[Rfam]
RNA sequence: UGCAAAUGAUGGCGAUCUCACGAUGGUCUGCCGAGCCCGCGUGGGCGUGACGACGCUGCCACAUGGCUGUACUGAUGCGGGUGA
Numbered sequence: 001u002g003c004a005a006a007u008g009a010u011g012g013c014g015a016u017c018u019c020a021c022g023a024u025g026g027u028c029u030g031c032c033g034a035g036c037c038c039g040c041g042u043g044g045g046c047g048u049g050a051c052g053a054c055g056c057u058g059c060c061a062c063a064u065g066g067c068u069g070u071a072c073u074g075a076u077g078c079g080g081g082u083g084a
Stems, first nucleotide, its partner, number of pairs: 001079004
Dot-bracket structure: ((((.......................................................................)))).....